[Rfam]
RNA sequence: AUUAAAUACCAAUUCAUACCGAAGACAGCCUGGUACCUUAUGGUGCCACGCCGAGGAUGAAACUCUAUAUCUAGUUUUAGAUCACGAGAUUUUCAACAACCCUCAUGUCAUUCGGCGUGAGGGUUUUAAAAUCUAAAA
Numbered sequence: 001a002u003u004a005a006a007u008a009c010c011a012a013u014u015c016a017u018a019c020c021g022a023a024g025a026c027a028g029c030c031u032g033g034u035a036c037c038u039u040a041u042g043g044u045g046c047c048a049c050g051c052c053g054a055g056g057a058u059g060a061a062a063c064u065c066u067a068u069a070u071c072u073a074g075u076u077u078u079a080g081a082u083c084a085c086g087a088g089a090u091u092u093u094c095a096a097c098a099a100c101c102c103u104c105a106u107g108u109c110a111u112u113c114g115g116c117g118u119g120a121g122g123g124u125u126u127u128a129a130a131a132u133c134u135a136a137a138a
Stems, first nucleotide, its partner, number of pairs: 028051002031048004036043002100123010
This 138-nucleotide RNA sequence from Ruminococcaceae bacterium KH2T8 belongs to the Rfam family "Ribosomal protein L10 leader". Rfam describes the family as follows. This family is a putative r-protein leader autoregulatory structure found in B. subtilis and other low-GC Gram-positive bacteria. It is located in the 5' untranslated regions of mRNAs encoding ribosomal proteins L10 and L12 (rplJ-rplL). A Rho-independent transcription terminator structure that is probably involved in regulation is included at the 3' end. Pairs were carried over by alignment from the consensus structure, which was predicted with CMfinder. A search with the family's covariance model found it, with a score of 54 bits. The source organism's lineage runs through Bacteria, Bacillati, Bacillota, Clostridia and Oscillospiraceae. It is annotated as a cis-regulatory leader.